This 46-nucleotide sequence from Cardiobacterium valvarum belongs to the Rfam family "PreQ1 (pre queuosine) riboswitch aptamer". Rfam links the family to the GO term queuosine biosynthetic process. The match comes from Rfam's covariance-model search (39 bits). About the family: This family is a bacterial riboswitch that binds to the metabolite preQ1, an intermediate in the biosynthesis of the modified nucleoside queuosine from GTP. One example of this riboswitch is located in the leader of the Bacillus subtilis ykvJKLM (queCDEF) operon which encodes four genes necessary for queuosine production. PreQ1 binding to the riboswitch aptamer is thought to induce premature transcription termination within the leader to down-regulate expression of these genes. Lineage of the source: Bacteria > Gammaproteobacteria > Cardiobacteriales > Cardiobacteriaceae > Cardiobacterium.
[Rfam]
RNA sequence: GCCCCUGUGGUUCGCAACCCAUCCCACAUGAAAAAACUAGGAAACC
Numbered sequence: 001g002c003c004c005c006u007g008u009g010g011u012u013c014g015c016a017a018c019c020c021a022u023c024c025c026a027c028a029u030g031a032a033a034a035a036a037c038u039a040g041g042a043a044a045c046c
Stems, first nucleotide, its partner, number of pairs: 006028005016038001